Shown here is a 91-nucleotide RNA from Methyloradius palustris, a member of the family "Burkholderia RNA 7 (anti-hemB)".
The match comes from Rfam's covariance-model search (64 bits).
For this family Rfam cites "Identification of 22 candidate structured RNAs in bacteria using the CMfinder comparative genomics pipeline" (Weinberg et al., Nucleic Acids Res, 2007).
It is annotated as a small RNA.
From the family's description: This RNA motif was identified by computational search in b-proteobacteria Burkholderia. Co-purified with Hfq, expression confirmed by Northern blot.
[Rfam]
Nucleotides: 091
Stems, first nucleotide, its partner, number of pairs: 004026006028046007055084008
Number, partner (000 for none) and nucleotide at each position: 001000u002000c003000u004026c005025c006024c007023g008022c009021u010000u011000c012000u013000c014000c015000u016000c017000c018000c019000u020000g021009a022008g023007c024006g025005g026004g027000a028046a029045g030044c031043c032042u033041u034040a035000u036000c037000u038000u039000a040034u041033a042032a043031g044030g045029c046028u047000u048000u049000a050000c051000u052000a053000u054000g055084c056083c057082c058081c059080c060079g061078a062077u063000u064000u065000u066000a067000c068000u069000c070000c071000c072000c073000u074000u075000u076000a077062a078061u079060c080059g081058g082057g083056g084055g085000u086000u087000u088000u089000u090000u091000u